A member of the RNA family "ZMP/ZTP riboswitch aptamer (pfl RNA motif)" from Desulforamulus aquiferis, 83 nucleotides long. The match comes from Rfam's covariance-model search (44 bits).
RNA sequence: UAGCAUUUACAUGACUGGCGGAGAUGUGGAGUAUACCACAAAGGAUUGUAACUGUUAAUAAGUCGACCUCUUGGGUAAUAACU
Numbered sequence: 001u002a003g004c005a006u007u008u009a010c011a012u013g014a015c016u017g018g019c020g021g022a023g024a025u026g027u028g029g030a031g032u033a034u035a036c037c038a039c040a041a042a043g044g045a046u047u048g049u050a051a052c053u054g055u056u057a058a059u060a061a062g063u064c065g066a067c068c069u070c071u072u073g074g075g076u077a078a079u080a081a082c083u
Stems, first nucleotide, its partner, number of pairs: 003055003007051005015043002017071002020068002026039004062076003